[Rfam]
RNA sequence: UUGAGCUAAAAAAAAGGAUCUGUUCUAUAGGCUCGUACCUCUGUAUCCUUGAUUUCUAAGGAGACAGGAAACCAUGUCUGGUGGAUGAACCAUGGCUGCCUGGUUAGAGCGUGACUAACAGCCCCUCGGGUUGGGUUUCCAACUCGUGAUGCAGUAGAUGGUCGUUCUUGACUUGACUUUGGUGGAGUCAGGGUGGCUAGGUAGCUGUCUGACAUACU
Numbered sequence: 001u002u003g004a005g006c007u008a009a010a011a012a013a014a015a016g017g018a019u020c021u022g023u024u025c026u027a028u029a030g031g032c033u034c035g036u037a038c039c040u041c042u043g044u045a046u047c048c049u050u051g052a053u054u055u056c057u058a059a060g061g062a063g064a065c066a067g068g069a070a071a072c073c074a075u076g077u078c079u080g081g082u083g084g085a086u087g088a089a090c091c092a093u094g095g096c097u098g099c100c101u102g103g104u105u106a107g108a109g110c111g112u113g114a115c116u117a118a119c120a121g122c123c124c125c126u127c128g129g130g131u132u133g134g135g136u137u138u139c140c141a142a143c144u145c146g147u148g149a150u151g152c153a154g155u156a157g158a159u160g161g162u163c164g165u166u167c168u169u170g171a172c173u174u175g176a177c178u179u180u181g182g183u184g185g186a187g188u189c190a191g192g193g194u195g196g197c198u199a200g201g202u203a204g205c206u207g208u209c210u211g212a213c214a215u216a217c218u
Stems, first nucleotide, its partner, number of pairs: 003025004041067004046062006076217002079214002095205012108166004118155002121152002125148001127146008168191007176183002
Rfam assigns this 218-nucleotide sequence from Salvia splendens to the family "Plant small nucleolar RNA U3". About the family: Small nucleolar RNAs (snoRNAs) are involved in the processing and modification of rRNA in the nucleolus. There are two main classes of snoRNAs: the box C/D class, and the box H/ACA class. U3 snoRNA is a member of the box C/D class. NCBI's taxonomy places the organism under Eukaryota, Gunneridae, Lamiaceae, Salvia, core Calosphace. Pairs were carried over by alignment from the consensus structure, which is taken from published work. It is annotated as a C/D-box small nucleolar RNA.